[Rfam]
A member of the RNA family "Group II catalytic intron D1-D4-3" from Salegentibacter echinorum, 176 nucleotides long.
A search with the family's covariance model found it, with a score of 109 bits.
NCBI's taxonomy places the organism under Bacteria, Pseudomonadati, Bacteroidota, Flavobacteriaceae, Salegentibacter.
The pairing is the family consensus, mapped onto this sequence.
Group II introns are found in rRNA, tRNA and mRNA of organelles in fungi, plants and protists, and also in mRNA in bacteria.
Gene Ontology term of the family: Group II intron splicing.

RNA sequence: UCUGACGUGAGACAGGAAGUGAAGGAAGCAGGACUACAAACCUUGGUACUGACGAACAGGAACUGGAUAAGAGGCUGUAAGGUUGGAUGAGCAAGCACAUCAUUGUGAUGUCCUAAACACUUUAAAGUGAAUACCGAAACAGUAGAUCUGGCAGGAAUCGAGGGAAAGAAGAUGUU
Numbered sequence: 001u002c003u004g005a006c007g008u009g010a011g012a013c014a015g016g017a018a019g020u021g022a023a024g025g026a027a028g029c030a031g032g033a034c035u036a037c038a039a040a041c042c043u044u045g046g047u048a049c050u051g052a053c054g055a056a057c058a059g060g061a062a063c064u065g066g067a068u069a070a071g072a073g074g075c076u077g078u079a080a081g082g083u084u085g086g087a088u089g090a091g092c093a094a095g096c097a098c099a100u101c102a103u104u105g106u107g108a109u110g111u112c113c114u115a116a117a118c119a120c121u122u123u124a125a126a127g128u129g130a131a132u133a134c135c136g137a138a139a140c141a142g143u144a145g146a147u148c149u150g151g152c153a154g155g156a157a158u159c160g161a162g163g164g165a166a167a168g169a170a171g172a173u174g175u176u
Base pairs, nucleotide, nucleotide: 001016002015003014004013006011028176031173037168041163042162043161044160045159046158047156049154050153051152063151064150065149066148067147068146074143075142076141078138081135082134083133085113086112087111088110091106092105093104094103